A member of the RNA family "DUF805b RNA" from Enhydra lutris, 35 nucleotides long. The family's RNA type in Rfam is cis-regulatory element. Its Rfam clan is "DUF805 clan". The match comes from Rfam's covariance-model search (36 bits).
[Rfam]
Nucleotides: 035
Stems, first nucleotide, its partner, number of pairs: 002021004010034003
Number, partner (000 for none) and nucleotide at each position: 001000a002021a003020g004019u005018g006000g007000g008000a009000u010034u011033c012032u013000g014000a015000a016000a017000a018005c019004a020003c021002u022000g023000a024000a025000a026000a027000u028000a029000g030000u031000a032012g033011g034010a035000a